Source information:
A member of the RNA family "Small nucleolar RNA SNORA71" from Hymenochirus boettgeri, 130 nucleotides long. The family has 40 seed sequences and 1,805 matches in Rfam 15.1. Its family is annotated with RNA processing and nucleolus in the Gene Ontology. Rfam's curators write: The members of this family belong to the H/ACA class of snoRNAs which bind a number of proteins (including dyskerin, Gar1p and Nop10p) to form snoRNP complexes. The family's consensus secondary structure was predicted with PFOLD. The organism belongs to Hymenochirus, within Eukaryota. It is annotated as an H/ACA-box small nucleolar RNA.
RNA sequence: ACCUGCAUCGAAAGUGAUUUAGGUUUGAUUAAUAACCUGAUCAUUGAUACUGCAGGAAGAUUAUAUGGUGUAAGUUUUCCGUGUUUGGGGUCUGUUACAUUAGGCUUCCAAACCCUGUAGCUUAUGCACA
Numbered sequence: 001a002c003c004u005g006c007a008u009c010g011a012a013a014g015u016g017a018u019u020u021a022g023g024u025u026u027g028a029u030u031a032a033u034a035a036c037c038u039g040a041u042c043a044u045u046g047a048u049a050c051u052g053c054a055g056g057a058a059g060a061u062u063a064u065a066u067g068g069u070g071u072a073a074g075u076u077u078u079c080c081g082u083g084u085u086u087g088g089g090g091u092c093u094g095u096u097a098c099a100u101u102a103g104g105c106u107u108c109c110a111a112a113c114c115c116u117g118u119a120g121c122u123u124a125u126g127c128a129c130a
Stems, first nucleotide, its partner, number of pairs: 002056006013045007022037004067127001069126007083113005088107005